[Rfam]
RNA sequence: CCACACCGGGACGGGGAACCACCCUGCGUUCGCCUGUUGUUGGAAUUUUCCAGGUGAACACAGCUGGUGGUAUCUCAGUCCUUGUGAUAUU
Numbered sequence: 001c002c003a004c005a006c007c008g009g010g011a012c013g014g015g016g017a018a019c020c021a022c023c024c025u026g027c028g029u030u031c032g033c034c035u036g037u038u039g040u041u042g043g044a045a046u047u048u049u050c051c052a053g054g055u056g057a058a059c060a061c062a063g064c065u066g067g068u069g070g071u072a073u074c075u076c077a078g079u080c081c082u083u084g085u086g087a088u089a090u091u
Stems, first nucleotide, its partner, number of pairs: 008082005015076001016074002018071002021068003024063003028059001030057002